[Rfam]
RNA: Guanidine-I riboswitch aptamer
RNA sequence: UUAAGGGUUUUAUAGGGUUCCGCAGUUUUUGAAAAAACUGGUCUGGACCGAGAUAAAACGCGCAGUUCAUCUGUGUAUACGGAAGGAUAAAAGCCUGGGAGAU
Numbered sequence: 001u002u003a004a005g006g007g008u009u010u011u012a013u014a015g016g017g018u019u020c021c022g023c024a025g026u027u028u029u030u031g032a033a034a035a036a037a038c039u040g041g042u043c044u045g046g047a048c049c050g051a052g053a054u055a056a057a058a059c060g061c062g063c064a065g066u067u068c069a070u071c072u073g074u075g076u077a078u079a080c081g082g083a084a085g086g087a088u089a090a091a092a093g094c095c096u097g098g099g100a101g102a103u
Stems, first nucleotide, its partner, number of pairs: 007059006015049002020046002022043001023040006060076006078098001080101001084096003